RNA sequence: GAUAUUAGCUAGGGGUGCUUUUAGCUGAGAGAUGAUUCAUCAACCCUUUAAACUUGUUAGGUUAGAACCUGCGUAAGAAAGCUAGAAAGAAGAGUU
Numbered sequence: 001g002a003u004a005u006u007a008g009c010u011a012g013g014g015g016u017g018c019u020u021u022u023a024g025c026u027g028a029g030a031g032a033u034g035a036u037u038c039a040u041c042a043a044c045c046c047u048u049u050a051a052a053c054u055u056g057u058u059a060g061g062u063u064a065g066a067a068c069c070u071g072c073g074u075a076a077g078a079a080a081g082c083u084a085g086a087a088a089g090a091a092g093a094g095u096u
Stems, first nucleotide, its partner, number of pairs: 006084005011047004017025003032040003053077004058071004
Rfam assigns this 96-nucleotide sequence from Anaerococcus lactolyticus to the family "TPP riboswitch aptamer (THI element)". From the family's description: Vitamin B(1) in its active form thiamin pyrophosphate (TPP) is an essential coenzyme that is synthesised by coupling of pyrimidine and thiazole moieties in bacteria. The previously detected thiamin-regulatory element, thi box was extended, resulting in a new, highly conserved RNA secondary structure, the THI element, which is widely distributed in eubacteria and also occurs in some archaea. Analysis of operon structures identified a large number of new candidate thiamin-regulated genes, mostly transporters, in various prokaryotic organisms. The THI element is a riboswitch that directly binds to TPP to regulate gene expression through a variety of mechanisms in archaea, bacteria and eukaryotes. through a variety of mechanisms in archaea, bacteria and eukaryotes. Tandem TPP riboswitches have been reported where both TPP riboswitches respond independently to TPP. The structure of TPP riboswitch has been reported for Escherichia coli and Arabidopsis thaliana. NCBI's taxonomy places the organism under Bacteria, Bacillati, Bacillota, Peptoniphilaceae, Anaerococcus lactolyticus. The match comes from Rfam's covariance-model search (61 bits).